[Rfam]
RNA sequence: UGAUGACUGUUCCUCUCACUGCCUAGAGCUUUAAGCAGUGAGAUUUUGGUCCAUCGUUUAUAAAAGCAGUGAGAUUUUGGUCUGUCAUCUGUCUUCAUUCAGAGCACCAUGAAGACAGGUUGGCUGUCUACUAGUGCCUUCUGAUUUUUGCGGAGUCAAACAAUU
Dot-bracket structure: (((((..(.....(((((.(((............))).))))).....)..)))))................((((((....................(((((((((.....(((((.......)))))....))))..))))).......))))))........
Numbered sequence: 001u002g003a004u005g006a007c008u009g010u011u012c013c014u015c016u017c018a019c020u021g022c023c024u025a026g027a028g029c030u031u032u033a034a035g036c037a038g039u040g041a042g043a044u045u046u047u048g049g050u051c052c053a054u055c056g057u058u059u060a061u062a063a064a065a066g067c068a069g070u071g072a073g074a075u076u077u078u079g080g081u082c083u084g085u086c087a088u089c090u091g092u093c094u095u096c097a098u099u100c101a102g103a104g105c106a107c108c109a110u111g112a113a114g115a116c117a118g119g120u121u122g123g124c125u126g127u128c129u130a131c132u133a134g135u136g137c138c139u140u141c142u143g144a145u146u147u148u149u150g151c152g153g154a155g156u157c158a159a160a161c162a163a164u165u
Stems, first nucleotide, its partner, number of pairs: 001056005008049001014043005020037003073157006099144005104137004113129005